About this RNA:
Rfam assigns this 77-nucleotide RNA sequence from Providencia stuartii to the family "tpke11". The base pairs follow the family's consensus structure, which was predicted with WAR. It is one of the family's seed sequences. By type it is a small RNA. Gene Ontology term of the family: response to temperature stimulus. Rfam describes the family as follows. In Yersinia located in ICR upstream dnaJ (chaperone)gene.
RNA sequence: AAUGGUUACUGAUACCGAACACGGGCGUCGAGGAAACUCCACGCCCGUGUCGGCAUGUUAAGGGUAAAAUAAAUGGC
Numbered sequence: 001a002a003u004g005g006u007u008a009c010u011g012a013u014a015c016c017g018a019a020c021a022c023g024g025g026c027g028u029c030g031a032g033g034a035a036a037c038u039c040c041a042c043g044c045c046c047g048u049g050u051c052g053g054c055a056u057g058u059u060a061a062g063g064g065u066a067a068a069a070u071a072a073a074u075g076g077c
Base pairs, nucleotide, nucleotide: 003018004016005015019050020049021048022047023046024045025044026043027042030039031038032037